This 73-nucleotide RNA from Chlorobaculum tepidum belongs to the Rfam family "tRNA". It is annotated as a transfer RNA. The organism belongs to Chlorobaculum tepidum, within Bacteria.

[Rfam]
RNA sequence: ACCCUUGUAGCUCAGUGGAUAGAGCAGCAGUUUCCUAAACUGUUGGUCGGCAGUUCGAGUCUGCCCAAGGGUA
Numbered sequence: 001a002c003c004c005u006u007g008u009a010g011c012u013c014a015g016u017g018g019a020u021a022g023a024g025c026a027g028c029a030g031u032u033u034c035c036u037a038a039a040c041u042g043u044u045g046g047u048c049g050g051c052a053g054u055u056c057g058a059g060u061c062u063g064c065c066c067a068a069g070g071g072u073a
Base pairs, nucleotide, nucleotide: 001072002071003070004069005068006067007066010025011024012023013022027043028042029041030040031039049065050064051063052062053061